Y RNA: a 102-nucleotide sequence from Gorilla gorilla. The match comes from Rfam's covariance-model search (66 bits). For this family Rfam cites "Conserved features of Y RNAs: a comparison of experimentally derived secondary structures" (Teunissen et al., Nucleic Acids Res, 2000).
[Rfam]
RNA sequence: GGCCGGUCUGAGGGCAGUGGUGCUUACAGCUAAUUGAUCACAACCAGUUACAAAUGUAUUUGUUCCUUCUUCACUCCCAUUGCUUCGUUUGACUAGCCAAAA
Numbered sequence: 001g002g003c004c005g006g007u008c009u010g011a012g013g014g015c016a017g018u019g020g021u022g023c024u025u026a027c028a029g030c031u032a033a034u035u036g037a038u039c040a041c042a043a044c045c046a047g048u049u050a051c052a053a054a055u056g057u058a059u060u061u062g063u064u065c066c067u068u069c070u071u072c073a074c075u076c077c078c079a080u081u082g083c084u085u086c087g088u089u090u091g092a093c094u095a096g097c098c099a100a101a102a
Stems, first nucleotide, its partner, number of pairs: 001098003005094004010090002014086001016081005022076001028064003032060002